The record is an 88-nucleotide RNA sequence from Mangrovibacillus cuniculi, which matches "c-di-GMP-I riboswitch aptamer" in Rfam.
RNA sequence: GUUGGUGAUGGGCAAACUUGGUGAAAGCCAAGGACGCAAAGACAUGGGUCUUCGAUUCUAUUAGAAUAAAGAUCGCCAGUCUGCGAAA
Numbered sequence: 001g002u003u004g005g006u007g008a009u010g011g012g013c014a015a016a017c018u019u020g021g022u023g024a025a026a027g028c029c030a031a032g033g034a035c036g037c038a039a040a041g042a043c044a045u046g047g048g049u050c051u052u053c054g055a056u057u058c059u060a061u062u063a064g065a066a067u068a069a070a071g072a073u074c075g076c077c078a079g080u081c082u083g084c085g086a087a088a
Stems, first nucleotide, its partner, number of pairs: 012037002017032006040082004045078003048073003055067004